Source information: Rfam assigns this 414-nucleotide sequence from Skermania sp. ID1734 to the family "Bacterial RNase P class A". Taxonomically the source falls in Skermania (Bacteria, Bacillati, Actinomycetota, Actinomycetes). The match comes from Rfam's covariance-model search (282 bits). The family's RNA type in Rfam is ribozyme.
[Rfam]
RNA sequence: CGAGUUGGCCGGGCGGCCGCGGCGCCGAGAACCACGUGCGGGUGCACGCAGGCUCGGCAUCGAGGAAAGUCCGGACUCCACAGAGCAGGGCGGUUGCUAACGGCAACCCGAGGCGACUCGCGGGAAAGUGCCACAGAAAACAGACCGCGCGCGAUCGAGGUCGUGCGUAAGGGUGAAACGGUGCGGUAAGAGCGCACCAGCGUCCCGGGUGACCGGGACGGCUCGGUAAACCCCGCCCGGAGCAAGGUCGAAGGUCGCACCGCGUGCGGUGCGGCUGCGCAGGCGUUCGAGGGCUGCUCGCCUGAGCCUGCGGGUGGACCGCUCGAGGCACCCGGUGACGGUGUGUCCAGAUGGAUGGCCGCCGACCAGCAAUCUAGCUGGUCACAGGAUCCGGCUUACAGGCCAACUCGUCCG
Numbered sequence: 001c002g003a004g005u006u007g008g009c010c011g012g013g014c015g016g017c018c019g020c021g022g023c024g025c026c027g028a029g030a031a032c033c034a035c036g037u038g039c040g041g042g043u044g045c046a047c048g049c050a051g052g053c054u055c056g057g058c059a060u061c062g063a064g065g066a067a068a069g070u071c072c073g074g075a076c077u078c079c080a081c082a083g084a085g086c087a088g089g090g091c092g093g094u095u096g097c098u099a100a101c102g103g104c105a106a107c108c109c110g111a112g113g114c115g116a117c118u119c120g121c122g123g124g125a126a127a128g129u130g131c132c133a134c135a136g137a138a139a140a141c142a143g144a145c146c147g148c149g150c151g152c153g154a155u156c157g158a159g160g161u162c163g164u165g166c167g168u169a170a171g172g173g174u175g176a177a178a179c180g181g182u183g184c185g186g187u188a189a190g191a192g193c194g195c196a197c198c199a200g201c202g203u204c205c206c207g208g209g210u211g212a213c214c215g216g217g218a219c220g221g222c223u224c225g226g227u228a229a230a231c232c233c234c235g236c237c238c239g240g241a242g243c244a245a246g247g248u249c250g251a252a253g254g255u256c257g258c259a260c261c262g263c264g265u266g267c268g269g270u271g272c273g274g275c276u277g278c279g280c281a282g283g284c285g286u287u288c289g290a291g292g293g294c295u296g297c298u299c300g301c302c303u304g305a306g307c308c309u310g311c312g313g314g315u316g317g318a319c320c321g322c323u324c325g326a327g328g329c330a331c332c333c334g335g336u337g338a339c340g341g342u343g344u345g346u347c348c349a350g351a352u353g354g355a356u357g358g359c360c361g362c363c364g365a366c367c368a369g370c371a372a373u374c375u376a377g378c379u380g381g382u383c384a385c386a387g388g389a390u391c392c393g394g395c396u397u398a399c400a401g402g403c404c405a406a407c408u409c410g411u412c413c414g
Stems, first nucleotide, its partner, number of pairs: 001410010011399001012363007020062003024058005067397003071394005076242004083299004088238005093107005108122001109120004123233002128231002130227003145172002147168009180198006200222001201220008246320004279311006291303004327347005332341003